Rfam assigns this 106-nucleotide RNA from Rhododendron simsii to the family "Small nucleolar RNA snoR100". The source organism's lineage runs through Eukaryota, Embryophyta, Spermatophyta, Ericoideae and Rhododendron.
RNA sequence: UUGUGACAUGCUUGGUAAUGUGCACAUAAAUUGUUUGGGGUCUCUAUGCCGGCCCUCUCUGAUGCCAUUUGGCUUUGAUUUGGGGGCAUGGUUCGACAACAAAACG
Number, nucleotide and partner (000 for none) at each position: 001u000002u000003g000004u000005g000006a000007c000008a000009u000010g023011c022012u000013u020014g000015g000016u000017a000018a000019u000020g013021u000022g011023c010024a000025c000026a000027u000028a000029a000030a000031u000032u000033g000034u000035u000036u000037g000038g089039g000040g087041u086042c085043u000044c000045u000046a000047u000048g079049c000050c077051g000052g073053c072054c071055c000056u000057c000058u000059c000060u000061g000062a000063u000064g000065c000066c000067a000068u000069u000070u000071g054072g053073c052074u000075u000076u000077g050078a000079u048080u000081u000082g000083g000084g000085g042086g041087c040088a000089u038090g000091g000092u000093u000094c000095g000096a000097c000098a000099a000100c000101a000102a000103a000104a000105c000106g000
Pairs were carried over by alignment from the consensus structure, which was predicted with WAR. Rfam links the family to the GO terms RNA processing and nucleolus. By type it is an H/ACA-box small nucleolar RNA.